[Rfam]
Nucleotides: 187
Base pairs, nucleotide, nucleotide: 005034006033007032008031009030010029011028012027015024016023017022044153045152046151047150052102054100059098060097063092064091103138104137105136106135107134108133114123115122116121124131125130170187172185173184
Number, partner (000 for none) and nucleotide at each position: 001000a002000a003000a004000a005034a006033g007032c008031c009030c010029g011028c012027u013000u014000u015024u016023g017022c018000g019000u020000c021000g022017g023016c024015a025000g026000a027012a028011g029010c030009g031008g032007g033006c034005u035000c036000u037000c038000u039000g040000a041000a042000a043000a044153u045152g046151c047150g048000g049000g050000a051000a052102a053000u054100c055000c056000g057000g058000g059098g060097g061000c062000a063092g064091u065000c066000u067000a068000g069000c070000g071000a072000u073000a074000g075000a076000g077000c078000g079000g080000c081000g082000g083000u084000g085000a086000g087000a088000c089000u090000g091064a092063c093000a094000c095000c096000g097060u098059u099000c100054g101000c102052u103138u104137u105136a106135g107134c108133u109000g110000u111000u112000u113000u114123g115122g116121g117000u118000u119000g120000c121116c122115c123114c124131g125130c126000g127000u128000c129000c130125g131124c132000a133108a134107g135106c136105u137104g138103a139000g140000a141000u142000c143000a144000a145000a146000u147000c148000g149000a150047c151046g152045c153044a154000a155000g156000c157000c158000c159000u160000a161000a162000u163000g164000c165000u166000a167000a168000c169000a170187c171000g172185g173184c174000g175000g176000c177000u178000a179000c180000c181000a182000c183000a184173g185172c186000g187170g